[Rfam]
RNA: CRISPR RNA direct repeat element
RNA sequence: GACUCCCCGGGCCAACAGCCCGGGCCUCAUUGAAGC
Number, nucleotide and partner (000 for none) at each position: 001g000002a000003c000004u000005c000006c024007c023008c022009g021010g020011g019012c018013c000014a000015a000016c000017a000018g012019c011020c010021c009022g008023g007024g006025c000026c000027u000028c000029a000030u000031u000032g000033a000034a000035g000036c000